[Rfam]
RNA sequence: UCUGAGUGGAAUGUUGUCUGGUUCAAGGUCUUGCCCUGUGAUUGAGGAUGAUCUCUAUGUGUAGCUUUCACUCCUCGAUCUGCGGUAUCUCGGACCAGGCUUCAUUCCCCUCAGA
Numbered sequence: 001u002c003u004g005a006g007u008g009g010a011a012u013g014u015u016g017u018c019u020g021g022u023u024c025a026a027g028g029u030c031u032u033g034c035c036c037u038g039u040g041a042u043u044g045a046g047g048a049u050g051a052u053c054u055c056u057a058u059g060u061g062u063a064g065c066u067u068u069c070a071c072u073c074c075u076c077g078a079u080c081u082g083c084g085g086u087a088u089c090u091c092g093g094a095c096c097a098g099g100c101u102u103c104a105u106u107c108c109c110c111u112c113a114g115a
Stems, first nucleotide, its partner, number of pairs: 001115006008108006016100006024092001026090003

Shown here is a 115-nucleotide sequence from Digitaria exilis, a member of the family "mir-166 microRNA precursor family". For this family Rfam cites "MicroRNAs in plants" (Reinhart et al., Genes Dev, 2002). Gene Ontology terms of the family: RISC complex and miRNA-mediated post-transcriptional gene silencing. From the family's description: This family represents the plant microRNA (miRNA) precursor mir-166.